[Rfam]
A member of the RNA family "DUF3800-VII RNA", 89 nucleotides long.

RNA sequence: GACGGGUAAGCGCAGGAUAUGUAGAGGCCGCUCCCUGCGAGUGGCAGCCCAUAUGGGUGGGAUCCUCGGUUCCUGGGACCCUUCAGUUU
Numbered sequence: 001g002a003c004g005g006g007u008a009a010g011c012g013c014a015g016g017a018u019a020u021g022u023a024g025a026g027g028c029c030g031c032u033c034c035c036u037g038c039g040a041g042u043g044g045c046a047g048c049c050c051a052u053a054u055g056g057g058u059g060g061g062a063u064c065c066u067c068g069g070u071u072c073c074u075g076g077g078a079c080c081c082u083u084c085a086g087u088u089u
Stems, first nucleotide, its partner, number of pairs: 001084002004081004011076001013075004021070002024067003027045007048057003

Source information:
Rfam classes the family as a small RNA.